[Rfam]
RNA sequence: AAAAUUGCAGGGUCUUGUUGCCUCUUGUGAACACGACUCUUGAAAACUUCAGGAAAAUUACUUGCAUUGUUUUUGGGUGAACCUCUGUUUUUAUUCUUGACUGAAGGUUCAGUAAAUAAUGCAACAUUC
Numbered sequence: 001a002a003a004a005u006u007g008c009a010g011g012g013u014c015u016u017g018u019u020g021c022c023u024c025u026u027g028u029g030a031a032c033a034c035g036a037c038u039c040u041u042g043a044a045a046a047c048u049u050c051a052g053g054a055a056a057a058u059u060a061c062u063u064g065c066a067u068u069g070u071u072u073u074u075g076g077g078u079g080a081a082c083c084u085c086u087g088u089u090u091u092u093a094u095u096c097u098u099g100a101c102u103g104a105a106g107g108u109u110c111a112g113u114a115a116a117u118a119a120u121g122c123a124a125c126a127u128u129c
Stems, first nucleotide, its partner, number of pairs: 007047001011038002014035001016033002063123009078111007